[Rfam]
Background: Rfam assigns this 128-nucleotide sequence from Naumannella cuiyingiana to the family "FMN riboswitch aptamer (RFN element)". Lineage of the source: Bacteria > Actinomycetota > Actinomycetes > Propionibacteriaceae > Naumannella.

RNA sequence: UGCGUGUUCUGGGGUCGGUGAAAAUCCGAGCCGGCGGUGAAAGUCCGCGACCCGAUGGCAGCCAGUCAUCGGUUGAUGGGGUGGAAGUCCCCGACCGACGGUGAGAGUCCGGAUGGGAAGAACACGAG
Numbered sequence: 001u002g003c004g005u006g007u008u009c010u011g012g013g014g015u016c017g018g019u020g021a022a023a024a025u026c027c028g029a030g031c032c033g034g035c036g037g038u039g040a041a042a043g044u045c046c047g048c049g050a051c052c053c054g055a056u057g058g059c060a061g062c063c064a065g066u067c068a069u070c071g072g073u074u075g076a077u078g079g080g081g082u083g084g085a086a087g088u089c090c091c092c093g094a095c096c097g098a099c100g101g102u103g104a105g106a107g108u109c110c111g112g113a114u115g116g117g118a119a120g121a122a123c124a125c126g127a128g
Stems, first nucleotide, its partner, number of pairs: 003126007016028003030108002032097002034048004043095002052072002077093005099111003
Rfam's curators write: The RFN element is a highly conserved domain that is found frequently in the 5'-untranslated regions of prokaryotic mRNAs that encode for flavin mononucleotide (FMN) biosynthesis and transport proteins. This element is a metabolite-dependent riboswitch that directly binds FMN in the absence of proteins. In Bacillus subtilis, the riboswitch most likely controls gene expression by causing premature transcription termination within the 5' untranslated region of the ribDEAHT operon and precluding access to the ribosome-binding site of ypaA mRNA.The FMN riboswitch structure, reported in present an FMN-bound six-stem junction, adopts a butterfly-like scaffold, stapled together by opposingly directed but nearly identically folded peripheral domains. Pairs were carried over by alignment from the consensus structure, which is taken from published work.